TPP riboswitch aptamer (THI element): a 92-nucleotide RNA from Lacicoccus alkaliphilus. Gene Ontology term of the family: thiamine pyrophosphate binding. The family's consensus secondary structure is taken from published work.
[Rfam]
RNA sequence: UGUUUCAGCUGGGGGCAGCCUUUACGGCUUGAGAAGUACCCUUUGAACCUGAUCUGGUUAAUACCAGCGGAGGGAAGUGGAAAUCGCCGAUU
Numbered sequence: 001u002g003u004u005u006c007a008g009c010u011g012g013g014g015g016c017a018g019c020c021u022u023u024a025c026g027g028c029u030u031g032a033g034a035a036g037u038a039c040c041c042u043u044u045g046a047a048c049c050u051g052a053u054c055u056g057g058u059u060a061a062u063a064c065c066a067g068c069g070g071a072g073g074g075a076a077g078u079g080g081a082a083a084u085c086g087c088c089g090a091u092u
Stems, first nucleotide, its partner, number of pairs: 006080001008078003011042004016036001017029004048073003054067004